Mason-Pfizer monkey virus packaging signal: a 299-nucleotide RNA from Cavia porcellus. On this family, see Mustafa et al., Virus Res 2004: "Mutational analysis of the predicted secondary RNA structure of the Mason-Pfizer monkey virus packaging signal". The family's RNA type in Rfam is cis-regulatory element.
[Rfam]
RNA sequence: UGGUGCCCAUCGUGGGGCUCCUGGCACAAAGGGCUCAACGAGGGAGCCAUCCUGAGACACACGUGUAAAAGUAAAACUAAAAGUUUUGUGACCAAUGCUACGCGGGAGCCUGCCGCGCCGCUAGUGUCAUGGUAAGUGGACGGCGAUCCUUUUCCCUUUUCUCUGGCAUGGGUCAGGCAUUAAGUGACCAUAAACGCUUUGUAUCAAGUUUAAGUAAAGCUUUAAAGACAAGAGGGAUAAAGGCUAAAAAAAAAGAGAUUUAUUGUAGUAUUUUCAAUUUAUUCAUAAGGUUUGCCCUU
Numbered sequence: 001u002g003g004u005g006c007c008c009a010u011c012g013u014g015g016g017g018c019u020c021c022u023g024g025c026a027c028a029a030a031g032g033g034c035u036c037a038a039c040g041a042g043g044g045a046g047c048c049a050u051c052c053u054g055a056g057a058c059a060c061a062c063g064u065g066u067a068a069a070a071g072u073a074a075a076a077c078u079a080a081a082a083g084u085u086u087u088g089u090g091a092c093c094a095a096u097g098c099u100a101c102g103c104g105g106g107a108g109c110c111u112g113c114c115g116c117g118c119c120g121c122u123a124g125u126g127u128c129a130u131g132g133u134a135a136g137u138g139g140a141c142g143g144c145g146a147u148c149c150u151u152u153u154c155c156c157u158u159u160u161c162u163c164u165g166g167c168a169u170g171g172g173u174c175a176g177g178c179a180u181u182a183a184g185u186g187a188c189c190a191u192a193a194a195c196g197c198u199u200u201g202u203a204u205c206a207a208g209u210u211u212a213a214g215u216a217a218a219g220c221u222u223u224a225a226a227g228a229c230a231a232g233a234g235g236g237a238u239a240a241a242g243g244c245u246a247a248a249a250a251a252a253a254a255g256a257g258a259u260u261u262a263u264u265g266u267a268g269u270a271u272u273u274u275c276a277a278u279u280u281a282u283u284c285a286u287a288a289g290g291u292u293u294g295c296c297c298u299u
Stems, first nucleotide, its partner, number of pairs: 006032002012027003033047004083133003090128002096123001097121002101117005138174002181224003184220002232274004237269002241261003245257001287298001289296002
Annotation:
Taxonomically the source falls in Cavia (Eukaryota, Bilateria, Teleostomi, Eutheria). The family's consensus secondary structure was predicted with PFOLD.